Shown here is a 72-nucleotide RNA from Pieris macdunnoughi, a member of the family "mir-34 microRNA precursor family". Rfam links the family to the GO terms miRNA-mediated post-transcriptional gene silencing and RISC complex. Its Rfam clan is "mir-34 clan". On this family, see Lim et al., Science 2003: "Vertebrate microRNA genes". Rfam describes the family as follows. Human mir-34a was discovered computationally and later experimentally verified. The mature sequence is excised from the 5' arm of the hairpin.
RNA sequence: ACCGCAUUGGCAGUGUGGUUAGCUGGUUGUUAAGUAAUGACCAACAGCCACUAAUGACACUGCCUCUGCGUC
Numbered sequence: 001a002c003c004g005c006a007u008u009g010g011c012a013g014u015g016u017g018g019u020u021a022g023c024u025g026g027u028u029g030u031u032a033a034g035u036a037a038u039g040a041c042c043a044a045c046a047g048c049c050a051c052u053a054a055u056g057a058c059a060c061u062g063c064c065u066c067u068g069c070g071u072c
Base pairs, nucleotide, nucleotide: 003070004069005068006067009064010063012061013060014059015058016057018055019054020053021052022051024050025049026048027047028046029045030044031043